The record is a 71-nucleotide RNA from Carnegiea gigantea, which matches "Small nucleolar RNA U49" in Rfam. A search with the family's covariance model found it, with a score of 45 bits. By type it is a C/D-box small nucleolar RNA. NCBI's taxonomy places the organism under Eukaryota, eudicotyledons, Cactoideae, Echinocereeae, Carnegiea.
RNA sequence: ACCCUGUGAGGAAGAAUUCCCAUAAAAAAAGAUAGGAAGUGCCGUCUGACACUCCAAAUAGCAGCUAGGGU
Numbered sequence: 001a002c003c004c005u006g007u008g009a010g011g012a013a014g015a016a017u018u019c020c021c022a023u024a025a026a027a028a029a030a031g032a033u034a035g036g037a038a039g040u041g042c043c044g045u046c047u048g049a050c051a052c053u054c055c056a057a058a059u060a061g062c063a064g065c066u067a068g069g070g071u
Stems, first nucleotide, its partner, number of pairs: 014065001036055001038053004